[Rfam]
RNA: Group II catalytic intron D1-D4-2
Organism: Rhizobium etli
RNA sequence: GGAGGAUGGCCCUCCGGGAUCGGCUUUCAGGAGCGGGUCUCAAACCAGUCCGAGCUGCUGCGGUAAAGAGCCGUGGUGGCUGGGGCUUACUUUCCGCCGCCGGU
Numbered sequence: 001g002g003a004g005g006a007u008g009g010c011c012c013u014c015c016g017g018g019a020u021c022g023g024c025u026u027u028c029a030g031g032a033g034c035g036g037g038u039c040u041c042a043a044a045c046c047a048g049u050c051c052g053a054g055c056u057g058c059u060g061c062g063g064u065a066a067a068g069a070g071c072c073g074u075g076g077u078g079g080c081u082g083g084g085g086c087u088u089a090c091u092u093u094c095c096g097c098c099g100c101c102g103g104u
Stems, first nucleotide, its partner, number of pairs: 001015005016041006023034004046103001048086004053081003057077003061073004